[Rfam]
RNA sequence: AGAGUUGGCGAGGUGGUUGCAGAUUUGUCCUAGAGGCAGAUUUGAGGAAAGUCCGGACUCCCGAAAGACCAUACUUGCUGGAUAAUUCCCAGUGCGAGCGAUCGCGAGGAUAGUGCCACAGAAAAAUACCGCCUUUUCAAUGAGCAAUAAACAGCAACAACUGAUAAUUGAUUAGGUAAGGGUGCAAAGGUGCGGUAAGAGCGCACCAGCAGUAUCGAGAGGUGCUGGCUCGGUAAACCCCAGUAGGGAGCAAGGUCGAAGGGAUUAGGGUUGGUCUUUUUCCCAUCCCGACCAAGGAGAACCGCAUGAGGUGUUUGGUAACAAGCAUCCUAGAUAGAUAACUACCCUCGGAUUAUAAAUCACGAUAAUCUGAGAACAGAAUCCGGCUUACGUUUCAACUCUCUUG
Numbered sequence: 001a002g003a004g005u006u007g008g009c010g011a012g013g014u015g016g017u018u019g020c021a022g023a024u025u026u027g028u029c030c031u032a033g034a035g036g037c038a039g040a041u042u043u044g045a046g047g048a049a050a051g052u053c054c055g056g057a058c059u060c061c062c063g064a065a066a067g068a069c070c071a072u073a074c075u076u077g078c079u080g081g082a083u084a085a086u087u088c089c090c091a092g093u094g095c096g097a098g099c100g101a102u103c104g105c106g107a108g109g110a111u112a113g114u115g116c117c118a119c120a121g122a123a124a125a126a127u128a129c130c131g132c133c134u135u136u137u138c139a140a141u142g143a144g145c146a147a148u149a150a151a152c153a154g155c156a157a158c159a160a161c162u163g164a165u166a167a168u169u170g171a172u173u174a175g176g177u178a179a180g181g182g183u184g185c186a187a188a189g190g191u192g193c194g195g196u197a198a199g200a201g202c203g204c205a206c207c208a209g210c211a212g213u214a215u216c217g218a219g220a221g222g223u224g225c226u227g228g229c230u231c232g233g234u235a236a237a238c239c240c241c242a243g244u245a246g247g248g249a250g251c252a253a254g255g256u257c258g259a260a261g262g263g264a265u266u267a268g269g270g271u272u273g274g275u276c277u278u279u280u281u282c283c284c285a286u287c288c289c290g291a292c293c294a295a296g297g298a299g300a301a302c303c304g305c306a307u308g309a310g311g312u313g314u315u316u317g318g319u320a321a322c323a324a325g326c327a328u329c330c331u332a333g334a335u336a337g338a339u340a341a342c343u344a345c346c347c348u349c350g351g352a353u354u355a356u357a358a359a360u361c362a363c364g365a366u367a368a369u370c371u372g373a374g375a376a377c378a379g380a381a382u383c384c385g386g387c388u389u390a391c392g393u394u395u396c397a398a399c400u401c402u403c404u405u406g
Base pairs, nucleotide, nucleotide: 001402002401003400004399005398006397007396008395010393012346013345014344015343016342017341018340020044021043022042023041024040025039026038027037028036049389050388051387053386054385055384056383057382058250059249060248061247067284072245073244074243076242077241078092079091080090081089093107094105095104096103097102108240109239113238114237115234116233117232129181130180131177132176133175134174137171138170139169140168141167189207190206191205192204193203194202209229210227211226212225213224214223215222216221254303255302256301257299269293270292271291272290273289274288310329311328312327313326314325315324316323317322
RNA: Bacterial RNase P class A